[Rfam]
Background
This 74-nucleotide sequence from Vireo altiloquus belongs to the Rfam family "U1A polyadenylation inhibition element (PIE)". Rfam's curators write: This family represents the U1A polyadenylation inhibition element (PIE). For this family Rfam cites "Global and Local Dynamics of the U1A Polyadenylation Inhibition Element (PIE) RNA and PIE RNA-U1A Complexes" (Clerte and Hall, Biochemistry, 2004). A search with the family's covariance model found it, with a score of 56 bits. By type it is a cis-regulatory element. Rfam links the family to the GO term regulation of mRNA polyadenylation.

RNA sequence: UCCCCCAGCACUGUACCCAGGGUCUGACUGCAGACAUUGCACCUGGAGCUGCCUCACCCCAAAUCCUCCAUCCU
Numbered sequence: 001u002c003c004c005c006c007a008g009c010a011c012u013g014u015a016c017c018c019a020g021g022g023u024c025u026g027a028c029u030g031c032a033g034a035c036a037u038u039g040c041a042c043c044u045g046g047a048g049c050u051g052c053c054u055c056a057c058c059c060c061a062a063a064u065c066c067u068c069c070a071u072c073c074u
Base pairs, nucleotide, nucleotide: 006051007050008049009048017046018045019044020043022035023034024033025032026031